[Rfam]
About this RNA
azaaromatic riboswitch aptamer (yjdF RNA): a 104-nucleotide RNA from Streptomyces mashuensis. The match comes from Rfam's covariance-model search (74 bits).
RNA sequence: GGCGGGACGAACGAAAACACAGCCCCGGUCGGUAGUCCGGGCGCCCGCGGUCCCCGCGGGUCAGUAACCUCCCUCCCAGGGUGUCCGGUUCGUCCCUCCGCACC
Numbered sequence: 001g002g003c004g005g006g007a008c009g010a011a012c013g014a015a016a017a018c019a020c021a022g023c024c025c026c027g028g029u030c031g032g033u034a035g036u037c038c039g040g041g042c043g044c045c046c047g048c049g050g051u052c053c054c055c056g057c058g059g060g061u062c063a064g065u066a067a068c069c070u071c072c073c074u075c076c077c078a079g080g081g082u083g084u085c086c087g088g089u090u091c092g093u094c095c096c097u098c099c100g101c102a103c104c
Stems, first nucleotide, its partner, number of pairs: 004096008022042002025040004043061008071081004